[Rfam]
RNA sequence: AGGUUGCAAGUUGAGACCAGAGCAGAAGGGUUUACGGCGUGGCCCUGUCAGAUUCCGACAAAUCUGCAAAUUCUGCU
Numbered sequence: 001a002g003g004u005u006g007c008a009a010g011u012u013g014a015g016a017c018c019a020g021a022g023c024a025g026a027a028g029g030g031u032u033u034a035c036g037g038c039g040u041g042g043c044c045c046u047g048u049c050a051g052a053u054u055c056c057g058a059c060a061a062a063u064c065u066g067c068a069a070a071u072u073c074u075g076c077u
Stems, first nucleotide, its partner, number of pairs: 013045001015044001017042002021077007028040001030038001049066006

Shown here is a 77-nucleotide sequence from Alligator sinensis, a member of the family "Mammalian CPEB3 ribozyme".
Its family is annotated with RNA nuclease activity in the Gene Ontology.
NCBI's taxonomy places the organism under Eukaryota, Euteleostomi, Dipnotetrapodomorpha, Tetrapoda, Alligator.
The family's consensus secondary structure is taken from published work.